[Rfam]
RNA sequence: AAGGAACUAUUACAUAACCUUCAUAUACACUCGAAAAUAUGGUUCGAACGUUUCUACCAGAUCACCGUAAAUGAUUUGACUAUGAAGGCAGAUUAAACAGUA
Numbered sequence: 001a002a003g004g005a006a007c008u009a010u011u012a013c014a015u016a017a018c019c020u021u022c023a024u025a026u027a028c029a030c031u032c033g034a035a036a037a038u039a040u041g042g043u044u045c046g047a048a049c050g051u052u053u054c055u056a057c058c059a060g061a062u063c064a065c066c067g068u069a070a071a072u073g074a075u076u077u078g079a080c081u082a083u084g085a086a087g088g089c090a091g092a093u094u095a096a097a098c099a100g101u102a
Stems, first nucleotide, its partner, number of pairs: 018088008031047005058078007
This 102-nucleotide RNA sequence from Bacillus sp. DNRA2 belongs to the Rfam family "Purine riboswitch aptamer". The base pairs follow the family's consensus structure, which is taken from published work. Lineage of the source: Bacteria > Bacillati > Bacilli > Bacillaceae > Bacillus. The match comes from Rfam's covariance-model search (86 bits).